[Rfam]
The record is a 124-nucleotide RNA from Solanum commersonii, which matches "U11 spliceosomal RNA" in Rfam. By type it is a spliceosomal small nuclear RNA. A reference for the family is Montzka and Steitz (1988), "Additional low-abundance human small nuclear ribonucleoproteins: U11, U12, etc", Proc Natl Acad Sci U S A. Taxonomically the source falls in Solanum (Eukaryota, Streptophyta, Embryophyta, lamiids).

RNA sequence: AAAAAGGGUCGGUUGGCUAAAUAUGCCACUCUUGCCUGCGUGGUGAGUGCUGUAUGGCUAUCAAGACAUAUGGCCGGCAUAAUUUGUGGAACCUUAAAGGGUUGGCUCCCCGGCCGACCCUCCA
Numbered sequence: 001a002a003a004a005a006g007g008g009u010c011g012g013u014u015g016g017c018u019a020a021a022u023a024u025g026c027c028a029c030u031c032u033u034g035c036c037u038g039c040g041u042g043g044u045g046a047g048u049g050c051u052g053u054a055u056g057g058c059u060a061u062c063a064a065g066a067c068a069u070a071u072g073g074c075c076g077g078c079a080u081a082a083u084u085u086g087u088g089g090a091a092c093c094u095u096a097a098a099g100g101g102u103u104g105g106c107u108c109c110c111c112g113g114c115c116g117a118c119c120c121u122c123c124a
Stems, first nucleotide, its partner, number of pairs: 008078005014028004029049001031047006050073007097121001099119001101118005107113001